[Rfam]
RNA sequence: ACACGGGAAAGGAGGUGGUCCAGCUUUGUAUAGCACUGGGACUCGUGAGGUGGCUGCCCGCUAGCCGCUGUCCUUGACAGUUUUCGUUCGUCGAGACCGUGUGGCAGCGGUGCGGCGAAACUCAAGCAGCCACCCGACCCCCGGGGCGCCGGCCCAGUCCAGCCGGCCCGUGCGAGCACGGUUGUCCCCGGGGGUCGAACCCU
Numbered sequence: 001a002c003a004c005g006g007g008a009a010a011g012g013a014g015g016u017g018g019u020c021c022a023g024c025u026u027u028g029u030a031u032a033g034c035a036c037u038g039g040g041a042c043u044c045g046u047g048a049g050g051u052g053g054c055u056g057c058c059c060g061c062u063a064g065c066c067g068c069u070g071u072c073c074u075u076g077a078c079a080g081u082u083u084u085c086g087u088u089c090g091u092c093g094a095g096a097c098c099g100u101g102u103g104g105c106a107g108c109g110g111u112g113c114g115g116c117g118a119a120a121c122u123c124a125a126g127c128a129g130c131c132a133c134c135c136g137a138c139c140c141c142c143g144g145g146g147c148g149c150c151g152g153c154c155c156a157g158u159c160c161a162g163c164c165g166g167c168c169c170g171u172g173c174g175a176g177c178a179c180g181g182u183u184g185u186c187c188c189c190g191g192g193g194g195u196c197g198a199a200c201c202c203u
Stems, first nucleotide, its partner, number of pairs: 014058006059117004064113002067108004072103001074101001135197012148167006
Dot-bracket structure: .............((((((.................................))))))((((.((.((((.(.(..........................).).))))...)))))).................((((((((((((.((((((........))))))..................))))))))))))......

The family of this 203-nucleotide sequence from Asanoa hainanensis is "Actinobacteria sRNA Ms_IGR-5".